[Rfam]
RNA: ffh sRNA
Organism: Yoonia ponticola
RNA sequence: UUUUUUGGGGAUCGCCCCCCACCAGCGUGUCACGCCCGUGGGGGCGCUACUG
Numbered sequence: 001u002u003u004u005u006u007g008g009g010g011a012u013c014g015c016c017c018c019c020c021a022c023c024a025g026c027g028u029g030u031c032a033c034g035c036c037c038g039u040g041g042g043g044g045c046g047c048u049a050c051u052g
Base pairs, nucleotide, nucleotide: 016044017043018042019041020040021039022038025035026034027033028032